Shown here is an 83-nucleotide RNA from Gossypium stocksii, a member of the family "Small nucleolar RNA J33". The source organism's lineage runs through Eukaryota, Embryophyta, malvids, Malvaceae and Gossypium. Rfam classes the family as a C/D-box small nucleolar RNA.
RNA sequence: CAGUUAGGGGAAUGAUGUAUUACUAUAGGGCUCUUAAAAUGCUUUCGUUUCUUGAUUCAGCAUCUGAGAUGGACAUACGAAUG
Numbered sequence: 001c002a003g004u005u006a007g008g009g010g011a012a013u014g015a016u017g018u019a020u021u022a023c024u025a026u027a028g029g030g031c032u033c034u035u036a037a038a039a040u041g042c043u044u045u046c047g048u049u050u051c052u053u054g055a056u057u058c059a060g061c062a063u064c065u066g067a068g069a070u071g072g073a074c075a076u077a078c079g080a081a082u083g
Stems, first nucleotide, its partner, number of pairs: 001083002004080001005077002

The literature on the family includes a 2003 paper in Nucleic Acids Res by Chen et al., "The high diversity of snoRNAs in plants: identification and comparative study of 120 snoRNA genes from Oryza sativa".